Shown here is a 98-nucleotide sequence from Ochotona princeps, a member of the family "Vault RNA". From the family's description: This family of RNAs are found as part of the enigmatic vault ribonucleoprotein complex. The complex consists of a major vault protein (MVP), two minor vault proteins (VPARP and TEP1), and several small untranslated RNA molecules. The base pairs follow the family's consensus structure, which is taken from published work. The organism belongs to Ochotona, within Eukaryota. The family's RNA type in Rfam is non-coding RNA gene.

RNA sequence: GGGCUGGCUUUAGCUCAGCGGUUCCUUCGUGUAGUUUGACACUUGGUUACAACUGUAGAUGAACAGUUCGCGACCCGCGGGCGCUCUCCAGUCCUUUU
Numbered sequence: 001g002g003g004c005u006g007g008c009u010u011u012a013g014c015u016c017a018g019c020g021g022u023u024c025c026u027u028c029g030u031g032u033a034g035u036u037u038g039a040c041a042c043u044u045g046g047u048u049a050c051a052a053c054u055g056u057a058g059a060u061g062a063a064c065a066g067u068u069c070g071c072g073a074c075c076c077g078c079g080g081g082c083g084c085u086c087u088c089c090a091g092u093c094c095u096u097u098u
Stems, first nucleotide, its partner, number of pairs: 002093006013082004018078004026072001028070002